[Rfam]
RNA sequence: AAAUUAGUUUUCUAGGGUUCCGCAGGAGACUUUCUUGGCAGGUCCGAGAGAAAACACACAAGUUAAUUUGUGUUCACGGAAGGAUAAAAGCCUGGGAGAU
Numbered sequence: 001a002a003a004u005u006a007g008u009u010u011u012c013u014a015g016g017g018u019u020c021c022g023c024a025g026g027a028g029a030c031u032u033u034c035u036u037g038g039c040a041g042g043u044c045c046g047a048g049a050g051a052a053a054a055c056a057c058a059c060a061a062g063u064u065a066a067u068u069u070g071u072g073u074u075c076a077c078g079g080a081a082g083g084a085u086a087a088a089a090g091c092c093u094g095g096g097a098g099a100u
Stems, first nucleotide, its partner, number of pairs: 007055006015045002020042002022039001023037006056073007075095001077098001081093003
The family of this 100-nucleotide sequence from Clostridium sp. DSM 8431 is "Guanidine-I riboswitch aptamer". Rfam links the family to the GO term regulation of gene expression. About the family: This family represents a conserved RNA structure found upstream of the ykkC and yxkD genes in Bacillus subtilis and related genes in other bacteria. Taxonomically the source falls in Clostridium (Bacteria, Bacillati, Bacillota, Clostridiaceae). The match comes from Rfam's covariance-model search (86 bits).